[Rfam]
transfer-messenger RNA: a 359-nucleotide RNA from Massilia sp. Leaf139. The source organism's lineage runs through Bacteria, Betaproteobacteria, Burkholderiales, Oxalobacteraceae and Massilia.
RNA sequence: GGGGGCGACCUGGUUUCGACGUGGGUUGCAAAGCAGCGCAGGGCAUACCGAGGACUGGUUACCUCGUAAAUACAUCCAGAAAUCAAUAACUGCAAACGAUAACUCGUACGCACUCGCAGCUUAAUUGCUGCUAGCUCUACACUACCUCGCCUCUGGGGUGGGCCGCAAGGCAAGUAGAGUCAUUUACAGAGGCUAGGACUCAACCGGGUUACUUGGUUGCUUCCGAAAUUUAAGGUAACUCGCUGGUACGCAGGGUGCACAUCCCCGUCGUGCCGGUCAAAUUAAAUGAUAGUGCUAAGUAUGUAGAACUGUCUGUAGAGUGCUUGCGGACGCGGGUUCGAUUCCCGCCGCCUCCACCA
Numbered sequence: 001g002g003g004g005g006c007g008a009c010c011u012g013g014u015u016u017c018g019a020c021g022u023g024g025g026u027u028g029c030a031a032a033g034c035a036g037c038g039c040a041g042g043g044c045a046u047a048c049c050g051a052g053g054a055c056u057g058g059u060u061a062c063c064u065c066g067u068a069a070a071u072a073c074a075u076c077c078a079g080a081a082a083u084c085a086a087u088a089a090c091u092g093c094a095a096a097c098g099a100u101a102a103c104u105c106g107u108a109c110g111c112a113c114u115c116g117c118a119g120c121u122u123a124a125u126u127g128c129u130g131c132u133a134g135c136u137c138u139a140c141a142c143u144a145c146c147u148c149g150c151c152u153c154u155g156g157g158g159u160g161g162g163c164c165g166c167a168a169g170g171c172a173a174g175u176a177g178a179g180u181c182a183u184u185u186a187c188a189g190a191g192g193c194u195a196g197g198a199c200u201c202a203a204c205c206g207g208g209u210u211a212c213u214u215g216g217u218u219g220c221u222u223c224c225g226a227a228a229u230u231u232a233a234g235g236u237a238a239c240u241c242g243c244u245g246g247u248a249c250g251c252a253g254g255g256u257g258c259a260c261a262u263c264c265c266c267g268u269c270g271u272g273c274c275g276g277u278c279a280a281a282u283u284a285a286a287u288g289a290u291a292g293u294g295c296u297a298a299g300u301a302u303g304u305a306g307a308a309c310u311g312u313c314u315g316u317a318g319a320g321u322g323c324u325u326g327c328g329g330a331c332g333c334g335g336g337u338u339c340g341a342u343u344c345c346c347g348c349c350g351c352c353u354c355c356a357c358c359a
Stems, first nucleotide, its partner, number of pairs: 001355007020328007033316004038312004044303005049066005055079004060074001113134002116131005135179006142161006149193007196224003201219004207240006242277009253266003257295004261290003332348005
Rfam links the family to the GO term RNA catabolic process.
A search with the family's covariance model found it, with a score of 211 bits.
For this family Rfam cites "Variations on the tmRNA gene" (Mao et al., RNA Biol, 2010).